[Rfam]
RNA sequence: CGGGGCGUAGCGCAGCCUGGUAGCGCACCACGCUGGGGGUGUGGUGGUCGCGAGUUCGAAUCUCGCCGCCCCGA
Numbered sequence: 001c002g003g004g005g006c007g008u009a010g011c012g013c014a015g016c017c018u019g020g021u022a023g024c025g026c027a028c029c030a031c032g033c034u035g036g037g038g039g040u041g042u043g044g045u046g047g048u049c050g051c052g053a054g055u056u057c058g059a060a061u062c063u064c065g066c067c068g069c070c071c072c073g074a
Stems, first nucleotide, its partner, number of pairs: 001073007010026004028044005050066005
Shown here is a 74-nucleotide RNA sequence from Pseudofulvimonas gallinarii, a member of the family "tRNA".
Its family is annotated with triplet codon-amino acid adaptor activity in the Gene Ontology.
The organism belongs to Pseudofulvimonas, within Bacteria.
The match comes from Rfam's covariance-model search (61 bits).
Pairs were carried over by alignment from the consensus structure, which is taken from published work.